[Rfam]
RNA sequence: GAGCUAGCAUUGAUUAUAAAAAUAAUUUUUAAUUCUGACUUUCUUAAUUUGGACUUGACAAACCUCUUAUUAGAAUCAUAGAAUCUAAGCUGC
Numbered sequence: 001g002a003g004c005u006a007g008c009a010u011u012g013a014u015u016a017u018a019a020a021a022a023u024a025a026u027u028u029u030u031a032a033u034u035c036u037g038a039c040u041u042u043c044u045u046a047a048u049u050u051g052g053a054c055u056u057g058a059c060a061a062a063c064c065u066c067u068u069a070u071u072a073g074a075a076u077c078a079u080a081g082a083a084u085c086u087a088a089g090c091u092g093c
Base pairs, nucleotide, nucleotide: 003093004092006091007090

The family of this 93-nucleotide RNA sequence from Theobroma cacao is "Small nucleolar RNA snoR8a". The source organism's lineage runs through Eukaryota, Streptophytina, Mesangiospermae, Pentapetalae and Theobroma. Pairs were carried over by alignment from the consensus structure, which was predicted with WAR. On this family, see Brown et al., RNA 2001: "Multiple snoRNA gene clusters from Arabidopsis". A search with the family's covariance model found it, with a score of 44 bits.